Rfam assigns this 114-nucleotide sequence from Monodelphis domestica to the family "Potassium channel RNA editing signal". A reference for the family is Bhalla et al. (2004), "Control of human potassium channel inactivation by editing of a small mRNA hairpin", Nat Struct Mol Biol. The family's RNA type in Rfam is cis-regulatory element. The source organism's lineage runs through Eukaryota, Chordata, Craniata, Didelphinae and Monodelphis.

[Rfam]
RNA sequence: GUGGGCUAUGGGGACAUGAGACCGGUGACGGUAGGGGGCAAGAUUGUGGGAUCUUUGUGUGCCAUUGCAGGUGUCCUCACCAUUGCUCUGCCCGUGCCUGUCAUCGUCUCCAAC
Number, nucleotide and partner (000 for none) at each position: 001g114002u113003g000004g111005g110006c000007u000008a107009u106010g105011g104012g000013g102014a101015c100016a099017u000018g097019a000020g095021a000022c000023c000024g000025g000026u000027g000028a000029c000030g000031g000032u000033a000034g000035g000036g000037g077038g076039c000040a074041a000042g000043a000044u000045u000046g000047u000048g000049g063050g062051a000052u000053c000054u000055u000056u000057g000058u000059g000060u000061g000062c050063c049064a000065u000066u000067g000068c000069a000070g000071g000072u000073g000074u040075c000076c038077u037078c000079a000080c000081c000082a000083u000084u000085g000086c000087u000088c000089u000090g000091c000092c000093c000094g000095u020096g000097c018098c000099u016100g015101u014102c013103a000104u011105c010106g009107u008108c000109u000110c005111c004112a000113a002114c001